A member of the RNA family "U7 small nuclear RNA" from Macaca nemestrina, 63 nucleotides long. Rfam describes the family as follows. Animal histone pre-mRNAs are spliced by a different mechanism than nuclear pre-mRNAs and self-splicing introns. This processing involves the U7 snRNP, which contains only one RNA species: U7. The 5' end of U7 RNA is thought to base-pair to a conserved spacer element downstream of the cleavage site in histone pre-mRNA. This family contains a number of annotated U7 pseudogenes. Lineage of the source: Eukaryota > Amniota > Boreoeutheria > Cercopithecoidea > Macaca. It scores 46 bits against the family's covariance model. Pairs were carried over by alignment from the consensus structure, which was predicted with PFOLD.
RNA sequence: UAGUGCUACAGUUUUUUUUGGAAGUUGUCCAGCAGGCUUUCUGGGUUUUGCUGGAAAGCCCUU
Numbered sequence: 001u002a003g004u005g006c007u008a009c010a011g012u013u014u015u016u017u018u019u020g021g022a023a024g025u026u027g028u029c030c031a032g033c034a035g036g037c038u039u040u041c042u043g044g045g046u047u048u049u050g051c052u053g054g055a056a057a058g059c060c061c062u063u
Stems, first nucleotide, its partner, number of pairs: 035060010
Dot-bracket structure: ..................................((((((((((......))))))))))...